[Rfam]
RNA sequence: GGGUACGGUGGCGAGGUGCUUCGGCCGCCCAGUUAAUGGAGGCCGAGGAAGGUCCCCGGGCCAAUCUGCAGAGAAUGCACGCUCGAAAGGGUUGUUCUUCGCCUCGAAGCGAUCUGGUGUCCCGCUCUUGUGGGACUGGCUGAGACACGUGUGGAGCCAUGUCCAGACCUCGGCGAAGCAGCUGGCCAUCAGUUACAGUGAUGCACCUGGUGGAGAUCCACUGAUGAUCUCCUCCAACAGAACGGGGCCUACGUCCGCCGUUAU
Numbered sequence: 001g002g003g004u005a006c007g008g009u010g011g012c013g014a015g016g017u018g019c020u021u022c023g024g025c026c027g028c029c030c031a032g033u034u035a036a037u038g039g040a041g042g043c044c045g046a047g048g049a050a051g052g053u054c055c056c057c058g059g060g061c062c063a064a065u066c067u068g069c070a071g072a073g074a075a076u077g078c079a080c081g082c083u084c085g086a087a088a089g090g091g092u093u094g095u096u097c098u099u100c101g102c103c104u105c106g107a108a109g110c111g112a113u114c115u116g117g118u119g120u121c122c123c124g125c126u127c128u129u130g131u132g133g134g135a136c137u138g139g140c141u142g143a144g145a146c147a148c149g150u151g152u153g154g155a156g157c158c159a160u161g162u163c164c165a166g167a168c169c170u171c172g173g174c175g176a177a178g179c180a181g182c183u184g185g186c187c188a189u190c191a192g193u194u195a196c197a198g199u200g201a202u203g204c205a206c207c208u209g210g211u212g213g214a215g216a217u218c219c220a221c222u223g224a225u226g227a228u229c230u231c232c233u234c235c236a237a238c239a240g241a242a243c244g245g246g247g248c249c250u251a252c253g254u255c256c257g258c259c260g261u262u263a264u
Stems, first nucleotide, its partner, number of pairs: 002264001005261007014208006021046006050250003054247004067079004099112004116179001118177001123172002128167002133164004137159004147152001210234001212232007